[Rfam]
RNA sequence: UCUCAUUUAAACGAUGUAAUCCCUAACCACUAUUACAUCCUUGCAGUCCUUUAACUGCGCCAGUUGAUUAAAUUUCAAUAAAACAGA
Numbered sequence: 001u002c003u004c005a006u007u008u009a010a011a012c013g014a015u016g017u018a019a020u021c022c023c024u025a026a027c028c029a030c031u032a033u034u035a036c037a038u039c040c041u042u043g044c045a046g047u048c049c050u051u052u053a054a055c056u057g058c059g060c061c062a063g064u065u066g067a068u069u070a071a072a073u074u075u076c077a078a079u080a081a082a083a084c085a086g087a
Stems, first nucleotide, its partner, number of pairs: 036066002040063002042059006
A member of the RNA family "BsrC" from Vagococcus acidifermentans, 87 nucleotides long.
By type it is a small RNA.
NCBI's taxonomy places the organism under Bacteria, Bacillati, Bacilli, Lactobacillales, Vagococcus.
The base pairs follow the family's consensus structure, which was predicted with CMfinder.
About the family: The 301 nucleotide sequence from Kouji Nakamura has been trimmed to a highly conserved ~85 nucleotide long core to form this family.
A search with the family's covariance model found it, with a score of 61 bits.
On this family, see Saito et al., Gene 2008: "Novel small RNA-encoding genes in the intergenic regions of Bacillus subtilis".